The family of this 78-nucleotide RNA sequence from Nicotiana tabacum is "MIR6145 microRNA precursor family". The family has 2 seed sequences and 52 matches in Rfam 15.1. Its family is annotated with miRNA-mediated post-transcriptional gene silencing and RISC complex in the Gene Ontology.

[Rfam]
RNA sequence: GUAAUGAGCAUUGUUACAUGUAGCACUGGCUCGCAUAAAUAUUUACCAGCCCGUGCUCAUGUGACAAUCCCCUUUGCU
Numbered sequence: 001g002u003a004a005u006g007a008g009c010a011u012u013g014u015u016a017c018a019u020g021u022a023g024c025a026c027u028g029g030c031u032c033g034c035a036u037a038a039a040u041a042u043u044u045a046c047c048a049g050c051c052c053g054u055g056c057u058c059a060u061g062u063g064a065c066a067a068u069c070c071c072c073u074u075u076g077c078u
Base pairs, nucleotide, nucleotide: 001077002076003075004074006072008070010068011067012066013065014064015063016062017061018060019059022057023056024055025054026053028051029050030049031048